This 86-nucleotide RNA sequence from Takifugu rubripes belongs to the Rfam family "mir-22 microRNA precursor family". The base pairs follow the family's consensus structure, which was predicted with RNAalifold.
RNA sequence: GCCGACCUACAGCAGUUCUUCACUGGCAAGCUUUAUGUCCUCGUGCAACAGCUAAAGCUGCCAGCUGAAGAACUGUUGUGGUUGGC
Numbered sequence: 001g002c003c004g005a006c007c008u009a010c011a012g013c014a015g016u017u018c019u020u021c022a023c024u025g026g027c028a029a030g031c032u033u034u035a036u037g038u039c040c041u042c043g044u045g046c047a048a049c050a051g052c053u054a055a056a057g058c059u060g061c062c063a064g065c066u067g068a069a070g071a072a073c074u075g076u077u078g079u080g081g082u083u084g085g086c
Base pairs, nucleotide, nucleotide: 004083005082006081009079010078011077016072017071018070019069020068021067025062026061027060029059030058031057032056033055034054035053
Its family is annotated with miRNA-mediated post-transcriptional gene silencing and RISC complex in the Gene Ontology.